[Rfam]
Background
The record is an 80-nucleotide RNA from Paspalum vaginatum, which matches "Small nucleolar RNA Z155" in Rfam. The source organism's lineage runs through Eukaryota, Euphyllophyta, Liliopsida, Andropogonodae and Paspalum. It is annotated as a C/D-box small nucleolar RNA. Rfam 15.1 lists 429 matches to the family in 196 species.
RNA sequence: AUUUGAUGUGAGGAUAGCCUUUCACAGAAACGCGUAGUUGUGUUGACUCGAAAUAUCAGACUACAAUUAUCUGAUCAAUU
Numbered sequence: 001a002u003u004u005g006a007u008g009u010g011a012g013g014a015u016a017g018c019c020u021u022u023c024a025c026a027g028a029a030a031c032g033c034g035u036a037g038u039u040g041u042g043u044u045g046a047c048u049c050g051a052a053a054u055a056u057c058a059g060a061c062u063a064c065a066a067u068u069a070u071c072u073g074a075u076c077a078a079u080u
Base pairs, nucleotide, nucleotide: 001080003078004077005076006075